[Rfam]
The record is a 92-nucleotide sequence from Actinophytocola xinjiangensis, which matches "Glycine riboswitch aptamer" in Rfam.
RNA sequence: AGAUCCCGCGCGGGAGAGUCCGGCACCCGUGCCGGCGCCGAAGGAGCAAAUCCUCCCCGGAACCUCUCAGGCACCCGAACCGCACGGGAGAG
Numbered sequence: 001a002g003a004u005c006c007c008g009c010g011c012g013g014g015a016g017a018g019u020c021c022g023g024c025a026c027c028c029g030u031g032c033c034g035g036c037g038c039c040g041a042a043g044g045a046g047c048a049a050a051u052c053c054u055c056c057c058c059g060g061a062a063c064c065u066c067u068c069a070g071g072c073a074c075c076c077g078a079a080c081c082g083c084a085c086g087g088g089a090g091a092g
Base pairs, nucleotide, nucleotide: 006087007086008085010083011082012081013080020035021034022033023032037072038071039070040068041067044066045065046064051059
A search with the family's covariance model found it, with a score of 66 bits. Taxonomically the source falls in Actinophytocola (Bacteria, Bacillati, Actinomycetota, Pseudonocardiales).